RNA sequence: UGUCUUUUUUCGCUUAAUCUUUAUCGAAAAGAGCGGGGGACCCGAACGAACCAUAGGCUUUAAAUCUAUUGGGGUGAAUUCUUAACAGAAAGGGCUCAGUUUCCAGUCCUAACCCGUCAGCUAACCCCGUAAGCGGCUUUAAGGGAACAG
Numbered sequence: 001u002g003u004c005u006u007u008u009u010u011c012g013c014u015u016a017a018u019c020u021u022u023a024u025c026g027a028a029a030a031g032a033g034c035g036g037g038g039g040a041c042c043c044g045a046a047c048g049a050a051c052c053a054u055a056g057g058c059u060u061u062a063a064a065u066c067u068a069u070u071g072g073g074g075u076g077a078a079u080u081c082u083u084a085a086c087a088g089a090a091a092g093g094g095c096u097c098a099g100u101u102u103c104c105a106g107u108c109c110u111a112a113c114c115c116g117u118c119a120g121c122u123a124a125c126c127c128c129g130u131a132a133g134c135g136g137c138u139u140u141a142a143g144g145g146a147a148c149a150g
Base pairs, nucleotide, nucleotide: 011135012134013133014132018032019031020030021029022028033130034129035128036127037126038125043071044070072115073114074113080089081088082087092109093108094107095106

The family of this 150-nucleotide sequence from Bacillus yapensis is "c-di-AMP riboswitch aptamer (ydaO/yuaA leader)". This family represents a conserved RNA structure found upstream of the ydaO and yuaA genes in Bacillus subtilis and related genes in other bacteria. The ydaO/yuaA element is thought to act as a genetic 'off' switch for the ydaO and yuaA genes in its native state. It is believed that the element may be triggered during osmotic shock leading to activation of ydaO, a predicted amino acid transporter gene, and members of the yuaA-yubG operon which code for KtrA and KtrB K+ transporters. NCBI's taxonomy places the organism under Bacteria, Bacillota, Bacilli, Caryophanales, Bacillus.